[Rfam]
RNA sequence: AUUUAAUGAUGAGGGCAUUGAAUGCACAAUAACUCAAAUCUUUCCUAAUACUCAACGGGUGUUUCUCCAUGAUAUUGUCGAAUCCCACAUAUUUCUUUUCUUACAUU
Numbered sequence: 001a002u003u004u005a006a007u008g009a010u011g012a013g014g015g016c017a018u019u020g021a022a023u024g025c026a027c028a029a030u031a032a033c034u035c036a037a038a039u040c041u042u043u044c045c046u047a048a049u050a051c052u053c054a055a056c057g058g059g060u061g062u063u064u065c066u067c068c069a070u071g072a073u074a075u076u077g078u079c080g081a082a083u084c085c086c087a088c089a090u091a092u093u094u095c096u097u098u099u100c101u102u103a104c105a106u107u
Stems, first nucleotide, its partner, number of pairs: 001107001003105001005102002058073001060071001
Shown here is a 107-nucleotide sequence from Salix dunnii, a member of the family "Plant small nucleolar RNA R71". Its family is annotated with RNA processing and nucleolus in the Gene Ontology. The family's consensus secondary structure was predicted with PFOLD. The organism belongs to Salix, within Eukaryota.